[Rfam]
RNA sequence: AAGCGAAGGUCCCAGCAGAGGGGUUCGGAACUAUGAUUGAGCCUCCCUAACACUAAUACAAACCUUCGCAGAGUUACUUGCCGGAUCGUAGGAUGCCCAGAAUCUUUUGUUUUGGAGCAUCUUGAACCCCCGGCUACAUUAUA
Number, nucleotide and partner (000 for none) at each position: 001a000002a000003g069004c068005g067006a066007a065008g064009g063010u000011c020012c000013c018014a000015g000016c000017a000018g013019a000020g011021g047022g046023g045024u000025u000026c000027g000028g000029a000030a000031c039032u000033a037034u000035g000036a000037u033038u000039g031040a000041g000042c000043c000044u000045c023046c022047c021048u000049a000050a000051c000052a000053c000054u000055a000056a000057u000058a000059c000060a000061a000062a000063c009064c008065u007066u006067c005068g004069c003070a000071g000072a000073g000074u000075u000076a000077c000078u000079u000080g134081c133082c132083g131084g130085a000086u000087c000088g000089u000090a000091g000092g121093a120094u000095g118096c117097c115098c114099a113100g112101a111102a110103u000104c000105u000106u000107u000108u000109g000110u102111u101112u100113u099114g098115g097116a000117g096118c095119a000120u093121c092122u000123u000124g000125a000126a000127c000128c000129c000130c084131c083132g082133g081134c080135u000136a000137c000138a000139u000140u000141a000142u000143a000
RNA: Small nucleolar RNA snoR145
Organism: Carpinus fangiana